[Rfam]
RNA sequence: GGCUGCCGUCCUACCUGUGCAUUAUUAGAGUUAUUAAAGGCAUCUAAUACUGUCAGGUAAUGACGAUAGCC
Numbered sequence: 001g002g003c004u005g006c007c008g009u010c011c012u013a014c015c016u017g018u019g020c021a022u023u024a025u026u027a028g029a030g031u032u033a034u035u036a037a038a039g040g041c042a043u044c045u046a047a048u049a050c051u052g053u054c055a056g057g058u059a060a061u062g063a064c065g066a067u068a069g070c071c
Stems, first nucleotide, its partner, number of pairs: 001071005007065004012059006020052002023049007